[Rfam]
RNA: Small Cajal body specific RNA 4
RNA sequence: UCUGGAGGAUCAAGAAGGCGGAGUCUGAUGAAGCAAGACUCGGCUGAUACAAUCCUCCUAGAGAAAGGGGUCAGAGAGAGCAGCCCUGCCUGGAGCACUGCACAGGGCUGACUGCACCACCCGACAUUC
Numbered sequence: 001u002c003u004g005g006a007g008g009a010u011c012a013a014g015a016a017g018g019c020g021g022a023g024u025c026u027g028a029u030g031a032a033g034c035a036a037g038a039c040u041c042g043g044c045u046g047a048u049a050c051a052a053u054c055c056u057c058c059u060a061g062a063g064a065a066a067g068g069g070g071u072c073a074g075a076g077a078g079a080g081c082a083g084c085c086c087u088g089c090c091u092g093g094a095g096c097a098c099u100g101c102a103c104a105g106g107g108c109u110g111a112c113u114g115c116a117c118c119a120c121c122c123g124a125c126a127u128u129c
Base pairs, nucleotide, nucleotide: 002061003060004058005057006056007055008054009053017045018044019043021041022040023039024038025037026036068122069121070120071119079113080112081110082109083108084107085106086105087104091102092101